The record is a 241-nucleotide RNA from Actinomadura rubteroloni, which matches "Actinobacteria sRNA Ms_IGR-5" in Rfam. Pairs were carried over by alignment from the consensus structure. It scores 90 bits against the family's covariance model. The source organism's lineage runs through Bacteria, Bacillati, Streptosporangiales, Thermomonosporaceae and Actinomadura.

RNA sequence: ACGCAGGAAAGGAGGUGGUCCUAGGUAUGAGUGACAGUAGGGCUUGCGAGGUGGCUGUCCGCUAGUCGCCGUCACGCCUCGGACCCACCGCUCUUGCAGGCGAGCUAGCCGCCUGUCGGGGCACGGGGACCGGUCGUGGACGCGACCGGCGAAUUCCAGGCAGGCACCGGGCCUCCGAACCAGAUGAGCCAGUCCUCUCAUCGCCCCCGCACCCGCGGGGAAGGUUCGGAGGCUUUUUCCU
Numbered sequence: 001a002c003g004c005a006g007g008a009a010a011g012g013a014g015g016u017g018g019u020c021c022u023a024g025g026u027a028u029g030a031g032u033g034a035c036a037g038u039a040g041g042g043c044u045u046g047c048g049a050g051g052u053g054g055c056u057g058u059c060c061g062c063u064a065g066u067c068g069c070c071g072u073c074a075c076g077c078c079u080c081g082g083a084c085c086c087a088c089c090g091c092u093c094u095u096g097c098a099g100g101c102g103a104g105c106u107a108g109c110c111g112c113c114u115g116u117c118g119g120g121g122c123a124c125g126g127g128g129a130c131c132g133g134u135c136g137u138g139g140a141c142g143c144g145a146c147c148g149g150c151g152a153a154u155u156c157c158a159g160g161c162a163g164g165c166a167c168c169g170g171g172c173c174u175c176c177g178a179a180c181c182a183g184a185u186g187a188g189c190c191a192g193u194c195c196u197c198u199c200a201u202c203g204c205c206c207c208c209g210c211a212c213c214c215g216c217g218g219g220g221a222a223g224g225u226u227c228g229g230a231g232g233c234u235u236u237u238u239c240c241u
Stems, first nucleotide, its partner, number of pairs: 014059006060151004065146002068143002073138003169235013183202006